[Rfam]
RNA sequence: GGCCACCUUCGGGGGGCUGAACAUAGUCCAGGAUGCCGGGAACACCCGGUGCUUGGACACUGCUAAACGGAAGACAGAAA
Numbered sequence: 001g002g003c004c005a006c007c008u009u010c011g012g013g014g015g016g017c018u019g020a021a022c023a024u025a026g027u028c029c030a031g032g033a034u035g036c037c038g039g040g041a042a043c044a045c046c047c048g049g050u051g052c053u054u055g056g057a058c059a060c061u062g063c064u065a066a067a068c069g070g071a072a073g074a075c076a077g078a079a080a
Stems, first nucleotide, its partner, number of pairs: 001018004006014003026058007
RNA: L2-Alphaproteobacteria ribosomal protein leader
Organism: Parasedimentitalea huanghaiensis